[Rfam]
RNA sequence: UUUAGAACAUGAGAUAUGGGUUGAACACCAAACAGUGUUUGGGCUGCAGGACAGAUUUCAACCUCUAUGUUGUUGUUACGAUUUGGACUUGAAAAUGACCUUUUUGAAUCUUGCACUCCACAUGAAUGUUUUAGGCCUAUGUCUUAGUUUCCCAGU
Numbered sequence: 001u002u003u004a005g006a007a008c009a010u011g012a013g014a015u016a017u018g019g020g021u022u023g024a025a026c027a028c029c030a031a032a033c034a035g036u037g038u039u040u041g042g043g044c045u046g047c048a049g050g051a052c053a054g055a056u057u058u059c060a061a062c063c064u065c066u067a068u069g070u071u072g073u074u075g076u077u078a079c080g081a082u083u084u085g086g087a088c089u090u091g092a093a094a095a096u097g098a099c100c101u102u103u104u105u106g107a108a109u110c111u112u113g114c115a116c117u118c119c120a121c122a123u124g125a126a127u128g129u130u131u132u133a134g135g136c137c138u139a140u141g142u143c144u145u146a147g148u149u150u151c152c153c154a155g156u
Stems, first nucleotide, its partner, number of pairs: 002155002005152001007150001008147001011145010021134005027129002035123003041119003045115002048112004054105002063097001068092001072088003
Rfam assigns this 156-nucleotide sequence from Populus alba to the family "MIR2912 microRNA precursor family". Pairs were carried over by alignment from the consensus structure, which was predicted with RNAalifold. It scores 116 bits against the family's covariance model. Its family is annotated with RISC complex and miRNA-mediated post-transcriptional gene silencing in the Gene Ontology. Taxonomically the source falls in Populus (Eukaryota, Spermatophyta, Gunneridae, Pentapetalae).